[Rfam]
RNA sequence: AGGGGUGUAGUUCAGUUGGUAGAACGACGGUCUCCAAAACCGUAUGCCGUGGGUUCAAGUCCUGCCACCCCUG
Number, nucleotide and partner (000 for none) at each position: 001a072002g071003g070004g069005g068006u067007g066008u000009a000010g025011u024012u023013c022014a000015g000016u000017u000018g000019g000020u000021a000022g013023a012024a011025c010026g000027a043028c042029g041030g040031u039032c000033u000034c000035c000036a000037a000038a000039a031040c030041c029042g028043u027044a000045u000046g000047c000048c000049g065050u064051g063052g062053g061054u000055u000056c000057a000058a000059g000060u000061c053062c052063u051064g050065c049066c007067a006068c005069c004070c003071c002072u001073g000

Rfam assigns this 73-nucleotide sequence from Alkalithermobacter paradoxus to the family "tRNA". Pairs were carried over by alignment from the consensus structure, which is taken from published work.